[Rfam]
RNA: c-di-GMP-I riboswitch aptamer
Organism: Candidatus Manganitrophus noduliformans
RNA sequence: CUUUGCUCAGAGCAAACCCAUCGAAAGGUGGGGACGCAGAGUAACGGGGCUACCGCCAUCCGGCCACGCCCGCCGAGCCGCCAAA
Numbered sequence: 001c002u003u004u005g006c007u008c009a010g011a012g013c014a015a016a017c018c019c020a021u022c023g024a025a026a027g028g029u030g031g032g033g034a035c036g037c038a039g040a041g042u043a044a045c046g047g048g049g050c051u052a053c054c055g056c057c058a059u060c061c062g063g064c065c066a067c068g069c070c071c072g073c074c075g076a077g078c079c080g081c082c083a084a085a
Base pairs, nucleotide, nucleotide: 012037013036017032018031019030020029021028022027041078042077045075046074047073048070049069050068055064056063057062